[Rfam]
RNA sequence: UUCCGGGUUUUCCAACGCCCGGGGUCACUGAAGAGGCACUUAUUACCUCCUUGCCGGCCGUGCGGAAGGGUCUUCCCCCUUUCCAAGCCAAGGCAUCACACGCGGGACGGCUUUUCGGUUUUGA
Numbered sequence: 001u002u003c004c005g006g007g008u009u010u011u012c013c014a015a016c017g018c019c020c021g022g023g024g025u026c027a028c029u030g031a032a033g034a035g036g037c038a039c040u041u042a043u044u045a046c047c048u049c050c051u052u053g054c055c056g057g058c059c060g061u062g063c064g065g066a067a068g069g070g071u072c073u074u075c076c077c078c079c080u081u082u083c084c085a086a087g088c089c090a091a092g093g094c095a096u097c098a099c100a101c102g103c104g105g106g107a108c109g110g111c112u113u114u115u116c117g118g119u120u121u122u123g124a
Base pairs, nucleotide, nucleotide: 001024002023003022004021005020006019007018008017035055036054037053038052087097105120106119108117109116